Shown here is an 81-nucleotide RNA sequence from Myotis brandtii, a member of the family "mir-574 microRNA precursor family". Pairs were carried over by alignment from the consensus structure, which was predicted with RNAalifold. The literature on the family includes a 2007 paper in Cancer Res by Lui et al., "Patterns of known and novel small RNAs in human cervical cancer".

RNA sequence: AGCCUCAAAGAGAGAGGCAGGGGCUGAUCCACAGCCUCCGUGGCAGCUGUUGAUCAGCUGUUGCCUCUCUCUUUGUCUCUU
Numbered sequence: 001a002g003c004c005u006c007a008a009a010g011a012g013a014g015a016g017g018c019a020g021g022g023g024c025u026g027a028u029c030c031a032c033a034g035c036c037u038c039c040g041u042g043g044c045a046g047c048u049g050u051u052g053a054u055c056a057g058c059u060g061u062u063g064c065c066u067c068u069c070u071c072u073u074u075g076u077c078u079c080u081u
Base pairs, nucleotide, nucleotide: 008073009072010071011070012069013068014067015066016065017064018063019062020061022059024057025056026055027054028053029052032049033048034047035046